Nucleotides: 095
Base pairs, nucleotide, nucleotide: 001023002022003021004020005019006018008017009016030054033051055093056092057091058090059089062086063085064084065083066082067081068080070079071078072077
Number, partner (000 for none) and nucleotide at each position: 001023u002022g003021c004020g005019a006018g007000g008017c009016c010000c011000a012000a013000a014000c015000g016009g017008g018006c019005u020004c021003g022002c023001a024000u025000g026000u027000u028000g029000g030054g031000c032000g033051c034000c035000g036000g037000a038000c039000c040000g041000g042000g043000u044000g045000u046000c047000c048000g049000g050000c051033g052000g053000c054030c055093c056092u057091c058090g059089u060000c061000a062086u063085c064084a065083c066082g067081u068080u069000g070079c071078u072077c073000c074000a075000a076000g077072g078071a079070g080068g081067a082066u083065g084064u085063g086062g087000u088000c089059a090058u091057g092056a093055g094000g095000a